Notes: Mitochondrial DNA control region secondary structure A: a 105-nucleotide sequence from Colobus angolensis. On this family, see Pereira et al., Mol Biol Evol 2008: "Evidence for variable selective pressures at a large secondary structure of the human mitochondrial DNA control region". A search with the family's covariance model found it, with a score of 71 bits. The source organism's lineage runs through Eukaryota, Opisthokonta, Craniata, Euteleostomi and Colobus angolensis. It is annotated as an antisense RNA.

[Rfam]
RNA sequence: GUAUUCUAUGGUGUGCAAACUUUAAAUGCAACUUAAGUACUAAUUUAUUUUAAUAUACUCCUAUGUAAUUCACGCAUUACUGCUAGCCAACAUGAAUAUUAUACA
Numbered sequence: 001g002u003a004u005u006c007u008a009u010g011g012u013g014u015g016c017a018a019a020c021u022u023u024a025a026a027u028g029c030a031a032c033u034u035a036a037g038u039a040c041u042a043a044u045u046u047a048u049u050u051u052a053a054u055a056u057a058c059u060c061c062u063a064u065g066u067a068a069u070u071c072a073c074g075c076a077u078u079a080c081u082g083c084u085a086g087c088c089a090a091c092a093u094g095a096a097u098a099u100u101a102u103a104c105a
Base pairs, nucleotide, nucleotide: 005096007094008093009092010091011088015083016082017081022036023035024034025033027031037058038057041053043051063077064076065075066074